A member of the RNA family "Cyano-1 RNA" from Synechococcus sp. CC9902, 66 nucleotides long. Rfam classes the family as a small RNA. Rfam's curators put it in the seed alignment. The base pairs follow the family's consensus structure, which is taken from published work. NCBI's taxonomy places the organism under Bacteria, Cyanobacteriota, Synechococcales, Synechococcaceae, Synechococcus.
Nucleotides: 066
Stems, first nucleotide, its partner, number of pairs: 016062005023055002027051003030047003
Number, partner (000 for none) and nucleotide at each position: 001000u002000a003000g004000c005000u006000c007000g008000u009000g010000a011000g012000g013000a014000a015000a016062a017061a018060a019059u020058c021000c022000u023055u024054c025000a026000a027051a028050g029049g030047g031046u032045g033000g034000a035000a036000a037000c038000a039000a040000g041000g042000a043000c044000a045032c046031a047030c048000u049029c050028c051027u052000g053000a054024g055023a056000u057000u058020g059019a060018u061017u062016u063000c064000g065000a066000a